Rfam assigns this 129-nucleotide RNA from Nicotiana sylvestris to the family "MIR6152 microRNA precursor family". Rfam links the family to the GO terms RISC complex and miRNA-mediated post-transcriptional gene silencing. The base pairs follow the family's consensus structure, which was predicted with RNAalifold.
RNA sequence: UAGACAGAUUAUUGUAUUCGACUGUAUUCACGAUAAGUAAUUGUUAAUACAGUAACGUAAAUAGCGCAAAUCGUGGUCUAUUCAGCUGAUUUUAAAUGGAAAGUGAAUCAAUUAACACAAUAGACUUCU
Numbered sequence: 001u002a003g004a005c006a007g008a009u010u011a012u013u014g015u016a017u018u019c020g021a022c023u024g025u026a027u028u029c030a031c032g033a034u035a036a037g038u039a040a041u042u043g044u045u046a047a048u049a050c051a052g053u054a055a056c057g058u059a060a061a062u063a064g065c066g067c068a069a070a071u072c073g074u075g076g077u078c079u080a081u082u083c084a085g086c087u088g089a090u091u092u093u094a095a096a097u098g099g100a101a102a103g104u105g106a107a108u109c110a111a112u113u114a115a116c117a118c119a120a121u122a123g124a125c126u127u128c129u
Stems, first nucleotide, its partner, number of pairs: 003127002009123007017115002020113002023110002026108006034098002037091001039090001